[Rfam]
RNA sequence: UUCUUAUCAAGAGAGGUGGAGGGACUGGCCCUAUGAAGCCCGGCAACCUAAAACAUUUGUUUUGUGGUGCCAAUUCCAGCAGGUACAACCUGGCAGAUAAGAA
Numbered sequence: 001u002u003c004u005u006a007u008c009a010a011g012a013g014a015g016g017u018g019g020a021g022g023g024a025c026u027g028g029c030c031c032u033a034u035g036a037a038g039c040c041c042g043g044c045a046a047c048c049u050a051a052a053a054c055a056u057u058u059g060u061u062u063u064g065u066g067g068u069g070c071c072a073a074u075u076c077c078a079g080c081a082g083g084u085a086c087a088a089c090c091u092g093g094c095a096g097a098u099a100a101g102a103a
Stems, first nucleotide, its partner, number of pairs: 001103008013041001015040003021031003025079004042071004047067002050062003075095001080092005

Record summary:
A member of the RNA family "SAM riboswitch aptamer (S box leader)" from Crassaminicella thermophila, 103 nucleotides long.